[Rfam]
RNA sequence: UACUCUGUUGUUAAUGAUGCAUUAUUGUUGCAACUGAUUCUAAAUGAUUUGGUCCAACAUUUCGUCACUACCACUGAGACAACAGAUAA
Numbered sequence: 001u002a003c004u005c006u007g008u009u010g011u012u013a014a015u016g017a018u019g020c021a022u023u024a025u026u027g028u029u030g031c032a033a034c035u036g037a038u039u040c041u042a043a044a045u046g047a048u049u050u051g052g053u054c055c056a057a058c059a060u061u062u063c064g065u066c067a068c069u070a071c072c073a074c075u076g077a078g079a080c081a082a083c084a085g086a087u088a089a
Stems, first nucleotide, its partner, number of pairs: 001089001004086009
The record is an 89-nucleotide RNA from Crocodylus porosus, which matches "Small nucleolar RNA SNORD70" in Rfam. The match comes from Rfam's covariance-model search (83 bits). The family's RNA type in Rfam is C/D-box small nucleolar RNA. snoRNA HBII-234 belongs to the C/D family of snoRNAs. It is the human orthologue of the mouse MBII-234 and is predicted to guide 2'O-ribose methylation of the small 18S rRNA on position A512. It is hosted, together with HBII-95, by the core C/D box snoRNA protein encoding gene NOP5/NOP58.